[Rfam]
RNA sequence: AGGGUAAGCUCCUAUUUGGGCCAGUAAGUGGAGGUGAACCUUCUGCUAAAAAUCAACAAAUUGACGGGAACGCCCUAAAGCAAUUUCAACCAAACAAACGUGGUAACACAGUUUGUGGCACAGGUAAUGACUCGUGGUAUGGUAAAAUCGAAAUUGAUCUACACGCGCAAGCGUGUAAAUGGGUAAUCCGCAGCCAAGCACCCCGAAAAAAAAAGAAUUUUUUUUUUUCGCUGGGUGUGCAGUUCAUCGACUAAAAGUUGGUUGGCUAGUUUAUAAAAUAUAGAAAUUAGCUUAAGAUAUAGUCAAGCCUCAUCUGAAAGGAUGCA
Numbered sequence: 001a002g003g004g005u006a007a008g009c010u011c012c013u014a015u016u017u018g019g020g021c022c023a024g025u026a027a028g029u030g031g032a033g034g035u036g037a038a039c040c041u042u043c044u045g046c047u048a049a050a051a052a053u054c055a056a057c058a059a060a061u062u063g064a065c066g067g068g069a070a071c072g073c074c075c076u077a078a079a080g081c082a083a084u085u086u087c088a089a090c091c092a093a094a095c096a097a098a099c100g101u102g103g104u105a106a107c108a109c110a111g112u113u114u115g116u117g118g119c120a121c122a123g124g125u126a127a128u129g130a131c132u133c134g135u136g137g138u139a140u141g142g143u144a145a146a147a148u149c150g151a152a153a154u155u156g157a158u159c160u161a162c163a164c165g166c167g168c169a170a171g172c173g174u175g176u177a178a179a180u181g182g183g184u185a186a187u188c189c190g191c192a193g194c195c196a197a198g199c200a201c202c203c204c205g206a207a208a209a210a211a212a213a214a215g216a217a218u219u220u221u222u223u224u225u226u227u228u229c230g231c232u233g234g235g236u237g238u239g240c241a242g243u244u245c246a247u248c249g250a251c252u253a254a255a256a257g258u259u260g261g262u263u264g265g266c267u268a269g270u271u272u273a274u275a276a277a278a279u280a281u282a283g284a285a286a287u288u289a290g291c292u293u294a295a296g297a298u299a300u301a302g303u304c305a306a307g308c309c310u311c312a313u314c315u316g317a318a319a320g321g322a323u324g325c326a
Stems, first nucleotide, its partner, number of pairs: 001017003051263005057257001062192002065190004073183003193243002198238004209228006247305001249304005265291008311324005
The family of this 326-nucleotide RNA sequence from Venturia effusa is "Group I catalytic intron". The match comes from Rfam's covariance-model search (101 bits).